RNA sequence: GUUUUAGGUAAGAUAAUCCUUACCUGUUCCUCCUUUUGGAGAAAAGAUAGAACAUGAUAACUGGAUGUCCCAUAAUAAAUAGCACGUGUCUCUGCAUAAUCAGGACUUGCAAUUCCCUGGAUGCUCCUGUAUGAU
Number, nucleotide and partner (000 for none) at each position: 001g000002u000003u000004u000005u000006a000007g000008g000009u000010a000011a000012g000013a000014u000015a000016a000017u000018c000019c000020u000021u000022a000023c000024c046025u045026g000027u000028u043029c000030c041031u040032c039033c038034u000035u000036u000037u000038g033039g032040a031041g030042a000043a028044a000045a025046g024047a000048u000049a000050g000051a000052a000053c000054a000055u000056g000057a000058u000059a000060a000061c000062u000063g000064g000065a000066u000067g000068u000069c000070c000071c000072a000073u000074a000075a091076u000077a089078a000079a087080u084081a000082g000083c000084a080085c000086g000087u079088g000089u077090c000091u075092c000093u000094g000095c000096a000097u123098a122099a000100u120101c119102a118103g117104g116105a000106c000107u000108u000109g000110c000111a000112a000113u000114u000115c000116c104117c103118u102119g101120g100121a000122u098123g097124c000125u000126c000127c000128u000129g000130u000131a000132u000133g000134a000135u000
RNA: U8 small nucleolar RNA